Shown here is a 99-nucleotide RNA sequence from Lonepinella koalarum, a member of the family "Aggregatibacter sRNA 22". NCBI's taxonomy places the organism under Bacteria, Pseudomonadati, Pseudomonadota, Pasteurellaceae, Lonepinella.

[Rfam]
RNA sequence: GUGCGGUGAAAAAAUUCCGUAGGAAUUUUCAACGUUGCGUAGCAACGGGAGCAAAGCUCCGAACAAUCCUAUCAAGGAUUGUGAGUAAAAUUUUUGGGG
Numbered sequence: 001g002u003g004c005g006g007u008g009a010a011a012a013a014a015u016u017c018c019g020u021a022g023g024a025a026u027u028u029u030c031a032a033c034g035u036u037g038c039g040u041a042g043c044a045a046c047g048g049g050a051g052c053a054a055a056g057c058u059c060c061g062a063a064c065a066a067u068c069c070u071a072u073c074a075a076g077g078a079u080u081g082u083g084a085g086u087a088a089a090a091u092u093u094u095u096g097g098g099g
Stems, first nucleotide, its partner, number of pairs: 011029007033047006048060005063082008087094002
The family has 7 seed sequences and 101 matches in Rfam 15.1. On this family, see Oogai et al., DNA Res 2017: "Small RNA repertoires and their intraspecies variation in Aggregatibacter actinomycetemcomitans".